[Rfam]
RNA sequence: GCAGUGUGAGGUAGUUGGUUGUAUGGUUUCGCAUCAUAAACAGCCGGAGAUAACUGUACAACCUUCUAGCUUUCCCUGC
Dot-bracket structure: ((((.(.(((.(((..(((((((((((.......(.......).........)))))))))))..))).))).).))))
Numbered sequence: 001g002c003a004g005u006g007u008g009a010g011g012u013a014g015u016u017g018g019u020u021g022u023a024u025g026g027u028u029u030c031g032c033a034u035c036a037u038a039a040a041c042a043g044c045c046g047g048a049g050a051u052a053a054c055u056g057u058a059c060a061a062c063c064u065u066c067u068a069g070c071u072u073u074c075c076c077u078g079c
Stems, first nucleotide, its partner, number of pairs: 001079004006074001008072003012068003017063011035043001

The record is a 79-nucleotide RNA from Liparis tanakae, which matches "let-7 microRNA precursor family" in Rfam. This family represents the microRNAs (miRNA) let-7 and mir-98. let-7 was identified from a study of developmental timing in C. elegans, and was later shown to be part of a much larger class of non-coding RNAs termed miRNAs. Lineage of the source: Eukaryota > Opisthokonta > Neopterygii > Osteoglossocephalai > Liparis. On this family, see Rougvie, Nat Rev Genet 2001: "Control of developmental timing in animals". A search with the family's covariance model found it, with a score of 55 bits.